[Rfam]
RNA: Small nucleolar RNA SNORD103/SNORD85
Organism: Nothoprocta ornata
RNA sequence: UCUGGCAGAAAUGACACUCCUGCCCUGACUGAGAAUGCUGUUCAGUCCUGGGAACGGUUUGAAGCCCUUGCUUGCUCUGAGUCAGA
Numbered sequence: 001u002c003u004g005g006c007a008g009a010a011a012u013g014a015c016a017c018u019c020c021u022g023c024c025c026u027g028a029c030u031g032a033g034a035a036u037g038c039u040g041u042u043c044a045g046u047c048c049u050g051g052g053a054a055c056g057g058u059u060u061g062a063a064g065c066c067c068u069u070g071c072u073u074g075c076u077c078u079g080a081g082u083c084a085g086a
Base pairs, nucleotide, nucleotide: 001086002085003084004083005082006081